Source information:
The record is a 152-nucleotide sequence from Crypturellus soui, which matches "Small nucleolar RNA SNORA12" in Rfam. Rfam links the family to the GO terms nucleolus and RNA processing. U108 belongs to the H/ACA family of snoRNAs.

RNA sequence: UAUUGUGGUGGUUUCUGUAUCUGGCCGAUCUGUAACAGUAUCAGAGCGGCCUUGAGCCACCACAAAGAUCGGAAAGGAGAACGGGCAUCCUGAGAGCUGUUUCAAGCUUUCAGUUUUCAGGAUUUUUUUUUUUUGGUUCAACUCCUACAAAA
Dot-bracket structure: ....(((((((...........(((.(.((((.........)))).).))).....)))))))............((((.................................(((...................)))....)))).......

By type it is an H/ACA-box small nucleolar RNA. The organism belongs to Crypturellus, within Eukaryota. A reference for the family is Gu et al. (2005), "A novel experimental approach for systematic identification of box H/ACA snoRNAs from eukaryotes", Nucleic Acids Res. Rfam 15.1 lists 571 matches to the family in 378 species. The base pairs follow the family's consensus structure, which was predicted with RNAalifold. The match comes from Rfam's covariance-model search (59 bits).